[Rfam]
RNA sequence: GCGGAAAAUCGGGUAAUCGCUCUAUGAAGCUUUAGUGGAUUAGAGAGGAAAGUCCGGACACCAACAGGCACCACGCUCAACGAUCCUUCGGGCGAAGUUGAGGCUCGGUUAGGGCGACCUGGCCGGGACAGAAAGUGCAACAGAAAGCAAACCGUCUCGAUUCGUCGGGAUAAGGGUGAAAAGGUGAGGUAAGAGCUCACCGCCCCGUACUGUGAAGUCGGGGGCAAGGUAAACCUCGUGGGGUGCAAGCUCAUGUAGGGUGGUAUGCGUCGCUUGUCGUAAAGCCACCGGGUGGAGUGCACCAGAUAAAUGAUUACCGAAUCCCGGGUAUCCGGGAGGAACAAAAUCCGGCUUAUAGAUUUUCCGCUAUA
Numbered sequence: 001g002c003g004g005a006a007a008a009u010c011g012g013g014u015a016a017u018c019g020c021u022c023u024a025u026g027a028a029g030c031u032u033u034a035g036u037g038g039a040u041u042a043g044a045g046a047g048g049a050a051a052g053u054c055c056g057g058a059c060a061c062c063a064a065c066a067g068g069c070a071c072c073a074c075g076c077u078c079a080a081c082g083a084u085c086c087u088u089c090g091g092g093c094g095a096a097g098u099u100g101a102g103g104c105u106c107g108g109u110u111a112g113g114g115c116g117a118c119c120u121g122g123c124c125g126g127g128a129c130a131g132a133a134a135g136u137g138c139a140a141c142a143g144a145a146a147g148c149a150a151a152c153c154g155u156c157u158c159g160a161u162u163c164g165u166c167g168g169g170a171u172a173a174g175g176g177u178g179a180a181a182a183g184g185u186g187a188g189g190u191a192a193g194a195g196c197u198c199a200c201c202g203c204c205c206c207g208u209a210c211u212g213u214g215a216a217g218u219c220g221g222g223g224g225c226a227a228g229g230u231a232a233a234c235c236u237c238g239u240g241g242g243g244u245g246c247a248a249g250c251u252c253a254u255g256u257a258g259g260g261u262g263g264u265a266u267g268c269g270u271c272g273c274u275u276g277u278c279g280u281a282a283a284g285c286c287a288c289c290g291g292g293u294g295g296a297g298u299g300c301a302c303c304a305g306a307u308a309a310a311u312g313a314u315u316a317c318c319g320a321a322u323c324c325c326g327g328g329u330a331u332c333c334g335g336g337a338g339g340a341a342c343a344a345a346a347u348c349c350g351g352c353u354u355a356u357a358g359a360u361u362u363u364c365c366g367c368u369a370u371a
Base pairs, nucleotide, nucleotide: 001367002366003365004364005363006362007361008360009359010358011356012318013317014316015315016314017313018312020045021044022043023042024041050354051353052352054351055350056349057348058347059245060244061243062242067277071241072240073239074238075237076102077101078100079099080098103129104127105126106125107124108123109122110121111120112119113118130236131235135234136233137230138229152175153174154171155170156169157168158167159166160165183201184200185199186198187197188196202225203223204222205221206220207219209218210217211216249298250297251296252295259289260288261287262286263285264284270282272280273279
The record is a 371-nucleotide RNA sequence from Balneola sp., which matches "Bacterial RNase P class A" in Rfam.